The family of this 91-nucleotide RNA sequence from Vibrio sp. V28_P6S34P95 is "Translational regulator of tfoXVC". The family's consensus secondary structure was predicted with WAR. NCBI's taxonomy places the organism under Bacteria, Pseudomonadati, Pseudomonadota, Vibrionaceae, Vibrio. It scores 84 bits against the family's covariance model. The literature on the family includes a 2011 paper in J Bacteriol by Yamamoto et al., "Identification of a chitin-induced small RNA that regulates translation of the tfoX gene, encoding a positive regulator of natural competence in Vibrio cholerae".
[Rfam]
RNA sequence: AUAUGGCACUGCACAUAUCACUCCGGCAGCAAGCGAAGGUGUCAUUGACGCCCGUGGUAUAGUCCCCCCGGCUAUACCACGAUCUUUUUUU
Numbered sequence: 001a002u003a004u005g006g007c008a009c010u011g012c013a014c015a016u017a018u019c020a021c022u023c024c025g026g027c028a029g030c031a032a033g034c035g036a037a038g039g040u041g042u043c044a045u046u047g048a049c050g051c052c053c054g055u056g057g058u059a060u061a062g063u064c065c066c067c068c069c070g071g072c073u074a075u076a077c078c079a080c081g082a083u084c085u086u087u088u089u090u091u
Base pairs, nucleotide, nucleotide: 001018002017003016004015005014026034027033038052039051040050041049042048043047053081054080055079056078057077058076059075060074061073062072063071064070